[Rfam]
RNA: Actinobacteria sRNA Ms_IGR-7
Organism: Wenjunlia vitaminophila
RNA sequence: ACGAGGUGCCUCGCUGAUUGGGGCCGAUGGAAGCGUAAAGAACUCUCAUCAUCCCAGGUCGGCAGGCGCCUCUUCUAUAUCCGGGGCCACCCGAACCGAUCACCAAACGAUGGAUCCAG
Numbered sequence: 001a002c003g004a005g006g007u008g009c010c011u012c013g014c015u016g017a018u019u020g021g022g023g024c025c026g027a028u029g030g031a032a033g034c035g036u037a038a039a040g041a042a043c044u045c046u047c048a049u050c051a052u053c054c055c056a057g058g059u060c061g062g063c064a065g066g067c068g069c070c071u072c073u074u075c076u077a078u079a080u081c082c083g084g085g086g087c088c089a090c091c092c093g094a095a096c097c098g099a100u101c102a103c104c105a106a107a108c109g110a111u112g113g114a115u116c117c118a119g
Stems, first nucleotide, its partner, number of pairs: 003072009015061003019057001021055003026050003030046001032044002102115001104113001106111001